Rfam assigns this 77-nucleotide RNA sequence from Crocodylus porosus to the family "Mammalian CPEB3 ribozyme". Its family is annotated with RNA nuclease activity in the Gene Ontology. NCBI's taxonomy places the organism under Eukaryota, Craniata, Archelosauria, Crocodylidae, Crocodylus.

RNA sequence: CAUGUUCCAGGUCAGGUCAUAGCAGAAGGGCUUAUGACACAGCCUGUCAGAUUCCAAUGAAAUCUGUGAAUUUUGCU
Numbered sequence: 001c002a003u004g005u006u007c008c009a010g011g012u013c014a015g016g017u018c019a020u021a022g023c024a025g026a027a028g029g030g031c032u033u034a035u036g037a038c039a040c041a042g043c044c045u046g047u048c049a050g051a052u053u054c055c056a057a058u059g060a061a062a063u064c065u066g067u068g069a070a071u072u073u074u075g076c077u
Stems, first nucleotide, its partner, number of pairs: 015044003021077007028040001030038001048066006